[Rfam]
RNA: c-di-AMP riboswitch aptamer (ydaO/yuaA leader)
Organism: Actinomadura chibensis
RNA sequence: GCAGCGGCAGCGCCGAGUCCGCCCAGCGCGGAACCGGGGACCCACGUCCGCCGGAGUCCGGGACACCCUCCCGGACGGGCAUUCCGGCACCGGGGUGAAUCGGCAGGACUCUCCCGCACGUCCGGUGGGAGCCCGCCGUAGGGCCACUUCCACGCCCGAACCCGUCAGCUAACCCGGUAGGCGUCUUGGAAGAAGAGGA
Numbered sequence: 001g002c003a004g005c006g007g008c009a010g011c012g013c014c015g016a017g018u019c020c021g022c023c024c025a026g027c028g029c030g031g032a033a034c035c036g037g038g039g040a041c042c043c044a045c046g047u048c049c050g051c052c053g054g055a056g057u058c059c060g061g062g063a064c065a066c067c068c069u070c071c072c073g074g075a076c077g078g079g080c081a082u083u084c085c086g087g088c089a090c091c092g093g094g095g096u097g098a099a100u101c102g103g104c105a106g107g108a109c110u111c112u113c114c115c116g117c118a119c120g121u122c123c124g125g126u127g128g129g130a131g132c133c134c135g136c137c138g139u140a141g142g143g144c145c146a147c148u149u150c151c152a153c154g155c156c157c158g159a160a161c162c163c164g165u166c167a168g169c170u171a172a173c174c175c176g177g178u179a180g181g182c183g184u185c186u187u188g189g190a191a192g193a194a195g196a197g198g199a
Stems, first nucleotide, its partner, number of pairs: 011183004018032003033178006043092001093163003101138004141157004